[Rfam]
RNA sequence: GGGCUGGCUCUAGCUCAGCGGUUCCUUCGUCUACAUGCAUCAGACCUAACCACCAACUCGUUGGUGGUUCGCGACCCGCGGGCGCUCUCCAGUCCUUUU
Numbered sequence: 001g002g003g004c005u006g007g008c009u010c011u012a013g014c015u016c017a018g019c020g021g022u023u024c025c026u027u028c029g030u031c032u033a034c035a036u037g038c039a040u041c042a043g044a045c046c047u048a049a050c051c052a053c054c055a056a057c058u059c060g061u062u063g064g065u066g067g068u069u070c071g072c073g074a075c076c077c078g079c080g081g082g083c084g085c086u087c088u089c090c091a092g093u094c095c096u097u098u099u
Stems, first nucleotide, its partner, number of pairs: 002094006013083004018079004026073001028071002
The record is a 99-nucleotide RNA from Ochotona princeps, which matches "Vault RNA" in Rfam. The literature on the family includes a 2009 paper in Mol Biol Evol by Stadler et al., "Evolution of Vault RNAs". About the family: This family of RNAs are found as part of the enigmatic vault ribonucleoprotein complex. The complex consists of a major vault protein (MVP), two minor vault proteins (VPARP and TEP1), and several small untranslated RNA molecules. It has been suggested that the vault complex is involved in drug resistance.